[Rfam]
RNA: MIR473 microRNA precursor family
RNA sequence: GUUGCUUAUCUCUCUCCCUCAAAGGCUUCCAACAUCAGGUGUAGAAGCCUUGCUAGAAGCCUUUGUGGGAGAGGGGGAAACAA
Numbered sequence: 001g002u003u004g005c006u007u008a009u010c011u012c013u014c015u016c017c018c019u020c021a022a023a024g025g026c027u028u029c030c031a032a033c034a035u036c037a038g039g040u041g042u043a044g045a046a047g048c049c050u051u052g053c054u055a056g057a058a059g060c061c062u063u064u065g066u067g068g069g070a071g072a073g074g075g076g077g078a079a080a081c082a083a
Base pairs, nucleotide, nucleotide: 009076010075011074012073013072014071015070016069017068018067020065021064022063023062024061025060026059027058028057029056